[Rfam]
RNA sequence: AUAUCUCUCCCGAUUUGACACAACGUCCUGCUGAGAUGUUGUGCGACCUGCAGUGUCAAACAUCGGCGGAGAUGU
Numbered sequence: 001a002u003a004u005c006u007c008u009c010c011c012g013a014u015u016u017g018a019c020a021c022a023a024c025g026u027c028c029u030g031c032u033g034a035g036a037u038g039u040u041g042u043g044c045g046a047c048c049u050g051c052a053g054u055g056u057c058a059a060a061c062a063u064c065g066g067c068g069g070a071g072a073u074g075u
Stems, first nucleotide, its partner, number of pairs: 001075007010066005022040006045057003
This 75-nucleotide sequence from Dactylonectria macrodidyma belongs to the Rfam family "bZIP non canonical Hac1/Xbp1 intron".
From the family's description: bZIP intron RNA is a non-canonical intron that was first reported in HAC1 gene in yeast and XBP1 gene in Metazoa.
The family's RNA type in Rfam is small RNA.
The family's consensus secondary structure was predicted with RNAfold.